[Rfam]
RNA sequence: UGUCUCCUCCACCUCCAACCGGUGGAUUCGGCCCGGGGCCCCAAGCCCCGGGCCUUUUUUC
Dot-bracket structure: .......((((((.......))))))...((((((((.........)))))))).......
Betaproteobacteria toxic small RNA: a 61-nucleotide RNA from beta proteobacterium AAP65. The source organism's lineage runs through Bacteria, Pseudomonadati, Pseudomonadota and Betaproteobacteria. On this family, see Kimelman et al., Genome Res 2012: "A vast collection of microbial genes that are toxic to bacteria". Rfam describes the family as follows. Overexpression in amino aid rich medium attenuates growth, suggesting role in repressing amino acid intake and metabolism.